This 63-nucleotide RNA sequence belongs to the Rfam family "Selenocysteine insertion sequence 1". The incorporation of selenocysteine into a protein sequence is directed by an in-frame UGA codon (usually a stop codon) within the coding region of the mRNA. Selenoprotein mRNAs contain a conserved secondary structure in the 3' UTR that is required for the distinction of UGA stop from UGA selenocysteine. The selenocysteine insertion sequence (SECIS) is around 60 nt in length and adopts a hairpin structure which is sufficiently well-defined and conserved to act as a computational screen for selenoprotein genes.

RNA sequence: UAUUUGUGUAUGAUGGUCACAGUGUAAAGUUCCCACAGCUGUGACUUGAUUUUUAAAAAUGUC
Numbered sequence: 001u002a003u004u005u006g007u008g009u010a011u012g013a014u015g016g017u018c019a020c021a022g023u024g025u026a027a028a029g030u031u032c033c034c035a036c037a038g039c040u041g042u043g044a045c046u047u048g049a050u051u052u053u054u055a056a057a058a059a060u061g062u063c
Stems, first nucleotide, its partner, number of pairs: 002062002005059001015046009029036002
Rfam classes the family as a cis-regulatory element. Rfam's curators put it in the seed alignment.